[Rfam]
RNA: permuted transfer-messenger RNA
RNA sequence: AGCAAUAAACGCUCUGUGGAAUAAACGGGACGGACCCGGGGGCAGAACCCGGCGCCUCCACCUAAGGAAAUCACCGGUUUUCUUAGGUGGGGGUGAAUCAGGAUCGACGUACGCAGUAAAGAUAGAGUUUUUGCUCGGCAUGGUACCACCGUUAUCGGACUAAAAAAAACAAAUGGAACCAAUGAUAAUGGUCCAGCUGUAAGACUUGCAAACGAUAAUGUUCGUUUCGCAAGUGUGGUUCUUGCCGCGGCUUAA
Numbered sequence: 001a002g003c004a005a006u007a008a009a010c011g012c013u014c015u016g017u018g019g020a021a022u023a024a025a026c027g028g029g030a031c032g033g034a035c036c037c038g039g040g041g042g043c044a045g046a047a048c049c050c051g052g053c054g055c056c057u058c059c060a061c062c063u064a065a066g067g068a069a070a071u072c073a074c075c076g077g078u079u080u081u082c083u084u085a086g087g088u089g090g091g092g093g094u095g096a097a098u099c100a101g102g103a104u105c106g107a108c109g110u111a112c113g114c115a116g117u118a119a120a121g122a123u124a125g126a127g128u129u130u131u132u133g134c135u136c137g138g139c140a141u142g143g144u145a146c147c148a149c150c151g152u153u154a155u156c157g158g159a160c161u162a163a164a165a166a167a168a169a170c171a172a173a174u175g176g177a178a179c180c181a182a183u184g185a186u187a188a189u190g191g192u193c194c195a196g197c198u199g200u201a202a203g204a205c206u207u208g209c210a211a212a213c214g215a216u217a218a219u220g221u222u223c224g225u226u227u228c229g230c231a232a233g234u235g236u237g238g239u240u241c242u243u244g245c246c247g248c249g250g251c252u253u254a255a
Stems, first nucleotide, its partner, number of pairs: 001135005014125004026113002030110003036052005053095007136151003